[Rfam]
RNA sequence: GAAUAUGUUCCGGGGAGCUGGUAAGGCCGGCUGAGAGGGAAUUUUCUAUACAAUUCCGACCCGUUAAACCUGAUCUGGAUAAUGCCAGCGUAGGGACAGAAGCUCUGUUUAUU
Numbered sequence: 001g002a003a004u005a006u007g008u009u010c011c012g013g014g015g016a017g018c019u020g021g022u023a024a025g026g027c028c029g030g031c032u033g034a035g036a037g038g039g040a041a042u043u044u045u046c047u048a049u050a051c052a053a054u055u056c057c058g059a060c061c062c063g064u065u066a067a068a069c070c071u072g073a074u075c076u077g078g079a080u081a082a083u084g085c086c087a088g089c090g091u092a093g094g095g096a097c098a099g100a101a102g103c104u105c106u107g108u109u110u111a112u113u
Base pairs, nucleotide, nucleotide: 006101008099009098011063012062013061014060017031018030019029020028021027038057039056040055041054042053069094070093071092072091075088076087077086078085